[Rfam]
RNA sequence: GAUGACAAUACGCCUGUUUUUCUUUAGCUUCUUUUUUAUGUCACCCUAGUGGAGGCGAUUCGUUACGCAAAAAAUAAGCUAAAGACGAAUAGACAGCCUCCUCUGACCAAGGAGGCUUUUUUGU
Numbered sequence: 001g002a003u004g005a006c007a008a009u010a011c012g013c014c015u016g017u018u019u020u021u022c023u024u025u026a027g028c029u030u031c032u033u034u035u036u037u038a039u040g041u042c043a044c045c046c047u048a049g050u051g052g053a054g055g056c057g058a059u060u061c062g063u064u065a066c067g068c069a070a071a072a073a074a075u076a077a078g079c080u081a082a083a084g085a086c087g088a089a090u091a092g093a094c095a096g097c098c099u100c101c102u103c104u105g106a107c108c109a110a111g112g113a114g115g116c117u118u119u120u121u122u123g124u
Stems, first nucleotide, its partner, number of pairs: 016090004021085010032074003036070002039067001044052002054064004095117008
The record is a 124-nucleotide RNA from Photobacterium profundum, which matches "Phenylalanine leader peptide" in Rfam. Rfam's curators put it in the seed alignment. The family's consensus secondary structure was predicted with CMfinder. On this family, see Zurawski et al., Proc Natl Acad Sci U S A 1978: "Nucleotide sequence of the leader region of the phenylalanine operon of Escherichia coli". Lineage of the source: Bacteria > Pseudomonadota > Vibrionales > Photobacterium > Photobacterium profundum. Rfam 15.1 lists 379 matches to the family in 290 species.